A member of the RNA family "mir-2796 microRNA precursor family" from Operophtera brumata, 76 nucleotides long.
RNA sequence: UACAGUCAGAAGGGGUUUCUUUCGGCCUUCAGCUAUUGAGAGACUGUAGGCCGGCGGAAACUACUUGCUGACUGUA
Numbered sequence: 001u002a003c004a005g006u007c008a009g010a011a012g013g014g015g016u017u018u019c020u021u022u023c024g025g026c027c028u029u030c031a032g033c034u035a036u037u038g039a040g041a042g043a044c045u046g047u048a049g050g051c052c053g054g055c056g057g058a059a060a061c062u063a064c065u066u067g068c069u070g071a072c073u074g075u076a
Stems, first nucleotide, its partner, number of pairs: 005072004011066003014062007022054007030046003